[Rfam]
RNA: U11 spliceosomal RNA
RNA sequence: AAAAAGAGCUUCUAUCAUGAGUGGCACACGUAGAGAAACUCGAUUGCUCUUUGUGCGGAAUCGACAUCAAGAGAUUUCAGAAGCAUAAUUUUUUGGCAUUUGGGCAGCUAGUGAUCAUUUGUCCCGGAACGCUG
Dot-bracket structure: .......((((((.(((....))).)((((.((((.((.....)).)))).)))).((((((..........)))))).))))).................(.(...((.(.(((.....)))).))..).)..